Shown here is a 298-nucleotide RNA sequence from Mortierella sp. AM989, a member of the family "Metazoan signal recognition particle RNA". For this family Rfam cites "Towards the structure of the mammalian signal recognition particle" (Wild et al., Curr Opin Struct Biol, 2002). Clan: SRP clan. The family's RNA type in Rfam is non-coding RNA gene. The match comes from Rfam's covariance-model search (90 bits). About the family: The signal recognition particle (SRP) is a universally conserved ribonucleoprotein. The family's consensus secondary structure is taken from published work.
[Rfam]
RNA sequence: UCGGGCAGUUGUCAGCGAACUGCUGUGAGCCUAGUUUGGGCCGAUAAUUGGAUGAUGAAUCUACAUGGGAUUGGGACUACGUGUGUUGCGGUUACUUAGGUAUACCGCCCAUUGGAAGCUUGGUGUGGGCAUUCUGCGUUGGGCGUAAGCCCUGGCGCAAGAGGCCCUUGAAUAGCUAUCUGUUAUAGGCCAGCAAUGGAACAAUAAAAAUGAUGGCAGCACUGGGCAGUCUGGUGGAUCACGGGAAUUAGUUUGGACUGCAGCACACGCCAGCCUCGGGUGGAGACUCCCAUCCGCU
Numbered sequence: 001u002c003g004g005g006c007a008g009u010u011g012u013c014a015g016c017g018a019a020c021u022g023c024u025g026u027g028a029g030c031c032u033a034g035u036u037u038g039g040g041c042c043g044a045u046a047a048u049u050g051g052a053u054g055a056u057g058a059a060u061c062u063a064c065a066u067g068g069g070a071u072u073g074g075g076a077c078u079a080c081g082u083g084u085g086u087u088g089c090g091g092u093u094a095c096u097u098a099g100g101u102a103u104a105c106c107g108c109c110c111a112u113u114g115g116a117a118g119c120u121u122g123g124u125g126u127g128g129g130c131a132u133u134c135u136g137c138g139u140u141g142g143g144c145g146u147a148a149g150c151c152c153u154g155g156c157g158c159a160a161g162a163g164g165c166c167c168u169u170g171a172a173u174a175g176c177u178a179u180c181u182g183u184u185a186u187a188g189g190c191c192a193g194c195a196a197u198g199g200a201a202c203a204a205u206a207a208a209a210a211u212g213a214u215g216g217c218a219g220c221a222c223u224g225g226g227c228a229g230u231c232u233g234g235u236g237g238a239u240c241a242c243g244g245g246a247a248u249u250a251g252u253u254u255g256g257a258c259u260g261c262a263g264c265a266c267a268c269g270c271c272a273g274c275c276u277c278g279g280g281u282g283g284a285g286a287c288u289c290c291c292a293u294c295c296g297c298u
Stems, first nucleotide, its partner, number of pairs: 001044003004024007029041003049296006057288001060286003064282003067277003071273004081268013095255001098252001105244003109237002112234005118227009127167004132162002135159007142151003168174001175217006181209001183207003190199003